The record is a 448-nucleotide part of an RNA from Pomacea canaliculata, which matches "Eukaryotic large subunit ribosomal RNA" in Rfam.

RNA sequence: CGGGUGGAUCCGCUAAAGUCGGCCUGCGGAAUUCAGCUCGGCAAGCUGGCCGCGGCGGCGGGAGUCUGGCAUCUGCGCUUUGUCUCUGGCAAGGCGUGGACCGUCUCGCCGUCGGUCUAGGCCGGCAUGGCCGCGUGCACUUUCCGCUCAGGCAGAGCGCCACGACCGGUUCCCCAUCGGCGGUCAGAAGGCCUGUCAGGAAGGUAGGUGGGCGUCUUACGGCGCUUGCUGUUAUAGCCUGACUCGUCCCGAUCCGCUGGGGGACCGAGGAACCGCCGCGGAGAAGUUGUGGGCCGCUUCGCUCUCUCGGUGAGUCGCGACUGGUGGAGACUGGGCAACCGUGUCCGCCGACCGCUUACCGGGAUGGACGGAGUGUCGUGAGGCCUUUCUUCGCACAGGGUCAGUGGCGAAUCGGUCGGUCCUCCACCCGACCCGUCUUGAAACACGG
Numbered sequence: 001c002g003g004g005u006g007g008a009u010c011c012g013c014u015a016a017a018g019u020c021g022g023c024c025u026g027c028g029g030a031a032u033u034c035a036g037c038u039c040g041g042c043a044a045g046c047u048g049g050c051c052g053c054g055g056c057g058g059c060g061g062g063a064g065u066c067u068g069g070c071a072u073c074u075g076c077g078c079u080u081u082g083u084c085u086c087u088g089g090c091a092a093g094g095c096g097u098g099g100a101c102c103g104u105c106u107c108g109c110c111g112u113c114g115g116u117c118u119a120g121g122c123c124g125g126c127a128u129g130g131c132c133g134c135g136u137g138c139a140c141u142u143u144c145c146g147c148u149c150a151g152g153c154a155g156a157g158c159g160c161c162a163c164g165a166c167c168g169g170u171u172c173c174c175c176a177u178c179g180g181c182g183g184u185c186a187g188a189a190g191g192c193c194u195g196u197c198a199g200g201a202a203g204g205u206a207g208g209u210g211g212g213c214g215u216c217u218u219a220c221g222g223c224g225c226u227u228g229c230u231g232u233u234a235u236a237g238c239c240u241g242a243c244u245c246g247u248c249c250c251g252a253u254c255c256g257c258u259g260g261g262g263g264a265c266c267g268a269g270g271a272a273c274c275g276c277c278g279c280g281g282a283g284a285a286g287u288u289g290u291g292g293g294c295c296g297c298u299u300c301g302c303u304c305u306c307u308c309g310g311u312g313a314g315u316c317g318c319g320a321c322u323g324g325u326g327g328a329g330a331c332u333g334g335g336c337a338a339c340c341g342u343g344u345c346c347g348c349c350g351a352c353c354g355c356u357u358a359c360c361g362g363g364a365u366g367g368a369c370g371g372a373g374u375g376u377c378g379u380g381a382g383g384c385c386u387u388u389c390u391u392c393g394c395a396c397a398g399g400g401u402c403a404g405u406g407g408c409g410a411a412u413c414g415g416u417c418g419g420u421c422c423u424c425c426a427c428c429c430g431a432c433c434c435g436u437c438u439u440g441a442a443a444c445a446c447g448g
Base pairs, nucleotide, nucleotide: 001430002429003428004427005426006425007424008423010419011418012417102409103408104407105406107404433448434447435446436445

Rfam links the family to the GO terms ribosome and structural constituent of ribosome. NCBI's taxonomy places the organism under Eukaryota, Opisthokonta, Eumetazoa, Protostomia, Pomacea. The base pairs follow the family's consensus structure, which is taken from published work.